[Rfam]
Nucleotides: 095
Stems, first nucleotide, its partner, number of pairs: 009087005020031003033075003036071002040069003047061001
Number, partner (000 for none) and nucleotide at each position: 001000g002000g003000a004000c005000a006000g007000g008000a009087c010086u011085c012084u013083g014000g015000a016000g017000a018000g019000a020031c021030c022029c023000u024000u025000u026000u027000u028000u029022g030021g031020g032000c033075g034074c035073c036071g037070a038000a039000g040069g041068g042067g043000c044000a045000a046000u047061g048000a049000c050000a051000a052000a053000a054000u055000c056000u057000u058000g059000u060000c061047u062000u063000a064000a065000a066000u067042c068041u069040c070037u071036c072000a073035g074034g075033c076000a077000a078000a079000a080000g081000g082000a083013c084012a085011g086010a087009g088000a089000a090000g091000c092000a093000a094000u095000a
Record summary:
Rfam assigns this 95-nucleotide RNA from Desulforamulus ferrireducens to the family "Glycine riboswitch aptamer". The match comes from Rfam's covariance-model search (61 bits). NCBI's taxonomy places the organism under Bacteria, Bacillati, Clostridia, Peptococcaceae, Desulforamulus. The pairing is the family consensus, mapped onto this sequence.